Record summary
Guanidine-I riboswitch aptamer: a 105-nucleotide sequence from Vasconcelosia minhoensis. Taxonomically the source falls in Vasconcelosia minhoensis (Bacteria, Bacillati, Cyanobacteriota, Cyanophyceae). About the family: This family represents a conserved RNA structure found upstream of the ykkC and yxkD genes in Bacillus subtilis and related genes in other bacteria. The function of this family is unclear although it has been suggested that it may function to switch on efflux pumps and detoxification systems in response to harmful environmental molecules. A search with the family's covariance model found it, with a score of 78 bits.

[Rfam]
RNA sequence: AUUGAUUGCUUCUAGGGUUCCGGUUUGCGAGUUUACUCCAGAUGCCUGGUCCGAGAGAAGCCGCCAGCCGAGGUUGGUACACGGCGGGAUAAAAGCCCGGGAGAG
Numbered sequence: 001a002u003u004g005a006u007u008g009c010u011u012c013u014a015g016g017g018u019u020c021c022g023g024u025u026u027g028c029g030a031g032u033u034u035a036c037u038c039c040a041g042a043u044g045c046c047u048g049g050u051c052c053g054a055g056a057g058a059a060g061c062c063g064c065c066a067g068c069c070g071a072g073g074u075u076g077g078u079a080c081a082c083g084g085c086g087g088g089a090u091a092a093a094a095g096c097c098c099g100g101g102a103g104a105g
Stems, first nucleotide, its partner, number of pairs: 008061005015052002020049002022046001023043005063078006080100001082103001086098003